Background:
The family of this 102-nucleotide part of an RNA from Methanobacterium alkalithermotolerans is "Archaeal large subunit ribosomal RNA".
[Rfam]
RNA sequence: GACAUGGCAUGAAAGGAAUGAAGAUCAUCUGAAAGAAACUGUGGUAACAUGGGAGUAUGAGGAAGAUUGGACUAGUGUUGUGUCGUCCGUCUUGAAACACGG
Numbered sequence: 001g002a003c004a005u006g007g008c009a010u011g012a013a014a015g016g017a018a019u020g021a022a023g024a025u026c027a028u029c030u031g032a033a034a035g036a037a038a039c040u041g042u043g044g045u046a047a048c049a050u051g052g053g054a055g056u057a058u059g060a061g062g063a064a065g066a067u068u069g070g071a072c073u074a075g076u077g078u079u080g081u082g083u084c085g086u087c088c089g090u091c092u093u094g095a096a097a098c099a100c101g102g
Stems, first nucleotide, its partner, number of pairs: 001084010015073002023068004028063003034058001039052005087102004